Small nucleolar RNA SNORD16: a 99-nucleotide RNA sequence from Sphaeramia orbicularis. Its family is annotated with nucleolus and RNA processing in the Gene Ontology. NCBI's taxonomy places the organism under Eukaryota, Acanthomorphata, Gobiaria, Apogonoidei, Sphaeramia.

RNA sequence: GGCAAUGAUGGUGUAAUUUGCGUCUGACUCUGUGAUCAGUGACAGAAAGCCUGCUGUCAUAUGCUGACACAGUUGGCUGACGAACCUUAGAACUGAGCA
Numbered sequence: 001g002g003c004a005a006u007g008a009u010g011g012u013g014u015a016a017u018u019u020g021c022g023u024c025u026g027a028c029u030c031u032g033u034g035a036u037c038a039g040u041g042a043c044a045g046a047a048a049g050c051c052u053g054c055u056g057u058c059a060u061a062u063g064c065u066g067a068c069a070c071a072g073u074u075g076g077c078u079g080a081c082g083a084a085c086c087u088u089a090g091a092a093c094u095g096a097g098c099a
Stems, first nucleotide, its partner, number of pairs: 002098002021082004030072005039064002041058005